[Rfam]
RNA sequence: CUUCAGCGACCCGAGCCACAGCGGUUCCGUGCGGUCGCGGCCGUACGUCGCCAGCAGUGCCUGCGCCUC
Numbered sequence: 001c002u003u004c005a006g007c008g009a010c011c012c013g014a015g016c017c018a019c020a021g022c023g024g025u026u027c028c029g030u031g032c033g034g035u036c037g038c039g040g041c042c043g044u045a046c047g048u049c050g051c052c053a054g055c056a057g058u059g060c061c062u063g064c065g066c067c068u069c
Base pairs, nucleotide, nucleotide: 014026015025016024017023028065029064030063032059033058039052041050043048
Dot-bracket structure: .............((((.....)))).(((.((.....(.(.(....).).).....))...)))....